[Rfam]
RNA sequence: ACCUAUGGAAAAGGUCCAACCUUACAUGUCCUGUAUAUAAUAAAGAGGGCUAUGUGCGUUUGGACCUAUCCCACAGGC
Numbered sequence: 001a002c003c004u005a006u007g008g009a010a011a012a013g014g015u016c017c018a019a020c021c022u023u024a025c026a027u028g029u030c031c032u033g034u035a036u037a038u039a040a041u042a043a044a045g046a047g048g049g050c051u052a053u054g055u056g057c058g059u060u061u062g063g064a065c066c067u068a069u070c071c072c073a074c075a076g077g078c
Base pairs, nucleotide, nucleotide: 002077004075006073007072008071010069012067013066014065015064016063019060021058023056024055025054026053027052028051030049031048032047
Dot-bracket structure: .(.(.(((.(.(((((..(.(.((((((.(((..............))).)))))).).)..))))).).))).).).
A member of the RNA family "mir-2188 microRNA precursor family" from Vombatus ursinus, 78 nucleotides long. Its family is annotated with RISC complex and miRNA-mediated post-transcriptional gene silencing in the Gene Ontology.